A member of the RNA family "Bacillaceae-1 RNA" from Tenuibacillus multivorans, 67 nucleotides long.
[Rfam]
RNA sequence: GAAGACUCCUGGUCGGCUAAAUCAGCCACGUCCUGUGGCCAACGCCGACACUUGAACGUCCAGUUCU
Numbered sequence: 001g002a003a004g005a006c007u008c009c010u011g012g013u014c015g016g017c018u019a020a021a022u023c024a025g026c027c028a029c030g031u032c033c034u035g036u037g038g039c040c041a042a043c044g045c046c047g048a049c050a051c052u053u054g055a056a057c058g059u060c061c062a063g064u065u066c067u
Stems, first nucleotide, its partner, number of pairs: 012049006025039005054066004
The base pairs follow the family's consensus structure, which is taken from published work.
The source organism's lineage runs through Bacteria, Bacillati, Bacillota, Bacilli and Tenuibacillus.